[Rfam]
RNA sequence: CAUCCCCGUCCGCGAGAGACCACCGCCUGCCGGUGGCGCCGAAGGCGCAAAUCCGCCCGGAAUCGCUCAGGCACCCAGGAGCGGACGGUUUUC
Number, nucleotide and partner (000 for none) at each position: 001c000002a000003u000004c000005c000006c088007c087008g086009u085010c084011c083012g082013c081014g000015a000016g000017a000018g000019a000020c036021c035022a034023c033024c000025g000026c000027c000028u000029g000030c000031c000032g000033g023034u022035g021036g020037c000038g072039c071040c070041g068042a067043a000044g000045g066046c065047g064048c000049a000050a000051a000052u059053c000054c000055g000056c000057c000058c000059g052060g000061a000062a000063u000064c047065g046066c045067u042068c041069a000070g040071g039072c038073a000074c000075c000076c000077a000078g000079g000080a000081g013082c012083g011084g010085a009086c008087g007088g006089u000090u000091u000092u000093c000
RNA: Glycine riboswitch aptamer
Organism: Solimonas fluminis